[Rfam]
RNA sequence: AUCAAUCGGGCGACGCACUCCUCCUCCCAGCGAAGCCCGAUGCGAUUGGCGACACUCCUCCUCCCAGUUGCCAAUCAAGACAAGUAGCGCUCGCUGGACCUCCUCCCCCAGCGGGCGCUAUUU
Numbered sequence: 001a002u003c004a005a006u007c008g009g010g011c012g013a014c015g016c017a018c019u020c021c022u023c024c025u026c027c028c029a030g031c032g033a034a035g036c037c038c039g040a041u042g043c044g045a046u047u048g049g050c051g052a053c054a055c056u057c058c059u060c061c062u063c064c065c066a067g068u069u070g071c072c073a074a075u076c077a078a079g080a081c082a083a084g085u086a087g088c089g090c091u092c093g094c095u096g097g098a099c100c101u102c103c104u105c106c107c108c109c110a111g112c113g114g115g116c117g118c119u120a121u122u123u
Stems, first nucleotide, its partner, number of pairs: 007039005014032003044076010087118011
Dot-bracket structure: ......(((((..(((.............)))..)))))....((((((((((.............))))))))))..........(((((((((((..........))))))))))).....

Description: The record is a 123-nucleotide RNA sequence from Sinorhizobium sp. BG8, which matches "Alphaproteobacterial ar14" in Rfam. By type it is a small RNA. Gene Ontology term of the family: biological process involved in symbiotic interaction. The source organism's lineage runs through Bacteria, Pseudomonadota, Hyphomicrobiales, Rhizobiaceae and Sinorhizobium.